[Rfam]
RNA: Small nucleolar RNA U19
Organism: Hevea brasiliensis
RNA sequence: AACUGGCUUAGUUAGGAGCAGAGAUCAAAUUGUUUGAUCAAUCUAUGGUUGGUCAUUCAUAAUCCAAAGCCUUUUUGAGGGGACAAUCUUGCGAAUCUCACCAUCAAUUGUCCUCCAAGCAUCCUUAGACAUCA
Numbered sequence: 001a002a003c004u005g006g007c008u009u010a011g012u013u014a015g016g017a018g019c020a021g022a023g024a025u026c027a028a029a030u031u032g033u034u035u036g037a038u039c040a041a042u043c044u045a046u047g048g049u050u051g052g053u054c055a056u057u058c059a060u061a062a063u064c065c066a067a068a069g070c071c072u073u074u075u076u077g078a079g080g081g082g083a084c085a086a087u088c089u090u091g092c093g094a095a096u097c098u099c100a101c102c103a104u105c106a107a108u109u110g111u112c113c114u115c116c117a118a119g120c121a122u123c124c125u126u127a128g129a130c131a132u133c134a
Stems, first nucleotide, its partner, number of pairs: 004020002007018003036054007064128001066126002069123001074119004079115009